[Rfam]
RNA sequence: AGCUAUUGAUGAUUUUUGUAAUUUCUGACACCUCGUAUGAGGCCGCAUGGCCCGAUGAUUCUACUUGAACAAACUGAAGCUU
Number, nucleotide and partner (000 for none) at each position: 001a081002g080003c079004u078005a000006u000007u000008g000009a000010u000011g000012a000013u000014u000015u000016u000017u000018g000019u000020a000021a000022u000023u000024u000025c000026u000027g000028a000029c000030a000031c000032c000033u000034c000035g000036u000037a000038u000039g000040a000041g000042g000043c054044c000045g051046c050047a000048u000049g000050g046051c045052c000053c000054g043055a000056u000057g000058a000059u000060u000061c000062u000063a000064c000065u000066u000067g000068a000069a000070c000071a000072a000073a000074c000075u000076g000077a000078a004079g003080c002081u001082u000